[Rfam]
RNA sequence: GGGGCGGAUCUAGGAUUCGACAAGAUUCAUGAAACUCAAGGUGCAUGCCCAGGGGCGGUUUGCCUGGUAAAAAGCCGCAAAACUAUAAUUGCUAACGACGAUACGUUCGCACUAGCCGCUUAGGCUAGCCAUCGCCUUGAAAUCUCUCCUAUUGGUUAGAGGAUCGAUGGUCACCCCAAAUAGGAUAGCGAGGGAAGCACGCUUGAGGCUGAACCGCGAAAUAGUAUCAAGCUCACCAUGACGAAGCCUGUCGCUUGGCGUCUAAUUGGUUAAAUAAAUGAGCGACUAAGCAUGUAGUACCGAGAACGUAGGCUUUUUGGACGGGGGUUCGAUUCCCCCCCGCUCCACCA
Numbered sequence: 001g002g003g004g005c006g007g008a009u010c011u012a013g014g015a016u017u018c019g020a021c022a023a024g025a026u027u028c029a030u031g032a033a034a035c036u037c038a039a040g041g042u043g044c045a046u047g048c049c050c051a052g053g054g055g056c057g058g059u060u061u062g063c064c065u066g067g068u069a070a071a072a073a074g075c076c077g078c079a080a081a082a083c084u085a086u087a088a089u090u091g092c093u094a095a096c097g098a099c100g101a102u103a104c105g106u107u108c109g110c111a112c113u114a115g116c117c118g119c120u121u122a123g124g125c126u127a128g129c130c131a132u133c134g135c136c137u138u139g140a141a142a143u144c145u146c147u148c149c150u151a152u153u154g155g156u157u158a159g160a161g162g163a164u165c166g167a168u169g170g171u172c173a174c175c176c177c178a179a180a181u182a183g184g185a186u187a188g189c190g191a192g193g194g195a196a197g198c199a200c201g202c203u204u205g206a207g208g209c210u211g212a213a214c215c216g217c218g219a220a221a222u223a224g225u226a227u228c229a230a231g232c233u234c235a236c237c238a239u240g241a242c243g244a245a246g247c248c249u250g251u252c253g254c255u256u257g258g259c260g261u262c263u264a265a266u267u268g269g270u271u272a273a274a275u276a277a278a279u280g281a282g283c284g285a286c287u288a289a290g291c292a293u294g295u296a297g298u299a300c301c302g303a304g305a306a307c308g309u310a311g312g313c314u315u316u317u318u319g320g321a322c323g324g325g326g327g328u329u330c331g332a333u334u335c336c337c338c339c340c341c342g343c344u345c346c347a348c349c350a
Base pairs, nucleotide, nucleotide: 001346002345003344004343005342006341007340021319022318023317024316025315028312030310036305037304040301041300042299044294045293046292047291048290049067050066051065052064053063055078056077057076058075059074060073110128115125116124129170130169131168132167133166134165135162136161137160138159142157144155147185148184149183150182151181152180188217189216190215201232202231203230204229205228235270236269237268238267243262244261246259247258248257250286251285252284253283254282255281256280323339324338325337326336327335
A member of the RNA family "transfer-messenger RNA" from Colwellia psychrerythraea, 350 nucleotides long. Rfam's curators put it in the seed alignment. Rfam classes the family as a non-coding RNA gene. NCBI's taxonomy places the organism under Bacteria, Pseudomonadati, Pseudomonadota, Colwellia, Colwellia psychrerythraea. Its Rfam clan is "tRNA clan". About the family: Bacterial tmRNA, also known as 10Sa RNA or SsrA, is named for its dual tRNA and mRNA-like properties.